RNA sequence: UUGGCGGUGAAGUCCCAGAUGCGCUCCUGCAGCAGGCCCCACUGGUCGAAGUACUCGCCGUCGGUGACGACGCCGACCACGGUCUCGUCGCCGUAGUGGCCCUCGGCGUACUGCUCGACCCGGCCGUGCGCGAUGACCAGGAAGCGGUCCUCGGCGUGGCCCCACUCGACGAGGGUGUCACCUGCCGCGUAGUCCUCCUGGCGGAACAGCCCGGCGAGCGCGGUGAGCGCCUCCUCGUCGUCGAAGUCGCGCAGGAAGGACAGCUCGCGCAGGUCGCCUGCGACCACGCGGGGCUGGGCGUCGCCGCGGUCGACGGCGAUCCUGCCGUCGCCGACCACGUAGUCGAUGGCGAUGCGGCCGUCCCCGACGACGUAGCUGCGCCGCUGGUUGACCCGGUAGGUGCCGCCCCCGACGUGGGUCCACGGCAGGACCCUGAGCAGCCAGCGGGAGGUGAUCUCCUGCAUCUGCGGGACGGACUUGGUGGUGGUCGCGAGGUUGCGCGCCGCCUCGGUCGUGAGGCUCUGCUGCGCAGCAGC
Numbered sequence: 001u002u003g004g005c006g007g008u009g010a011a012g013u014c015c016c017a018g019a020u021g022c023g024c025u026c027c028u029g030c031a032g033c034a035g036g037c038c039c040c041a042c043u044g045g046u047c048g049a050a051g052u053a054c055u056c057g058c059c060g061u062c063g064g065u066g067a068c069g070a071c072g073c074c075g076a077c078c079a080c081g082g083u084c085u086c087g088u089c090g091c092c093g094u095a096g097u098g099g100c101c102c103u104c105g106g107c108g109u110a111c112u113g114c115u116c117g118a119c120c121c122g123g124c125c126g127u128g129c130g131c132g133a134u135g136a137c138c139a140g141g142a143a144g145c146g147g148u149c150c151u152c153g154g155c156g157u158g159g160c161c162c163c164a165c166u167c168g169a170c171g172a173g174g175g176u177g178u179c180a181c182c183u184g185c186c187g188c189g190u191a192g193u194c195c196u197c198c199u200g201g202c203g204g205a206a207c208a209g210c211c212c213g214g215c216g217a218g219c220g221c222g223g224u225g226a227g228c229g230c231c232u233c234c235u236c237g238u239c240g241u242c243g244a245a246g247u248c249g250c251g252c253a254g255g256a257a258g259g260a261c262a263g264c265u266c267g268c269g270c271a272g273g274u275c276g277c278c279u280g281c282g283a284c285c286a287c288g289c290g291g292g293g294c295u296g297g298g299c300g301u302c303g304c305c306g307c308g309g310u311c312g313a314c315g316g317c318g319a320u321c322c323u324g325c326c327g328u329c330g331c332c333g334a335c336c337a338c339g340u341a342g343u344c345g346a347u348g349g350c351g352a353u354g355c356g357g358c359c360g361u362c363c364c365c366g367a368c369g370a371c372g373u374a375g376c377u378g379c380g381c382c383g384c385u386g387g388u389u390g391a392c393c394c395g396g397u398a399g400g401u402g403c404c405g406c407c408c409c410c411g412a413c414g415u416g417g418g419u420c421c422a423c424g425g426c427a428g429g430a431c432c433c434u435g436a437g438c439a440g441c442c443a444g445c446g447g448g449a450g451g452u453g454a455u456c457u458c459c460u461g462c463a464u465c466u467g468c469g470g471g472a473c474g475g476a477c478u479u480g481g482u483g484g485u486g487g488u489c490g491c492g493a494g495g496u497u498g499c500g501c502g503c504c505g506c507c508u509c510g511g512u513c514g515u516g517a518g519g520c521u522c523u524g525c526u527g528c529g530c531a532g533c534a535g536c
Stems, first nucleotide, its partner, number of pairs: 006420003011415001015411001018325001021322001025319002027316003030312001037309002042303001045302001047300002049295001051230002054227008062108002065105001072100001074099001076097002079094005113219004119214002123210002126207002129203003133199001135197002140194002147188001153186004158182002161175002231293004237287002240284003249277003253274001259266001326372004383407001385405003391401003421461002424458002427455001430452002433448002437445001467506004473500002476497001477495003481491002511533002514530003517526002
RNA: Saccharopolyspora sRNA 350